[Rfam]
A member of the RNA family "mraW RNA" from Microbacterium sp. Root61, 100 nucleotides long. Pairs were carried over by alignment from the consensus structure, which is taken from published work.
RNA sequence: UCUGACUCCUCGAUCGUGAUCUCCCGCCGCUCGCGCCCUGACACACUUCCCCGGUGUCUGGUCGGAGCGGAUGGAGAUCAGGGUCGAGGAGAUCCGCCCC
Numbered sequence: 001u002c003u004g005a006c007u008c009c010u011c012g013a014u015c016g017u018g019a020u021c022u023c024c025c026g027c028c029g030c031u032c033g034c035g036c037c038c039u040g041a042c043a044c045a046c047u048u049c050c051c052c053g054g055u056g057u058c059u060g061g062u063c064g065g066a067g068c069g070g071a072u073g074g075a076g077a078u079c080a081g082g083g084u085c086g087a088g089g090a091g092a093u094c095c096g097c098c099c100c
Stems, first nucleotide, its partner, number of pairs: 010087006018079002021076004027070006034064002037061002040058005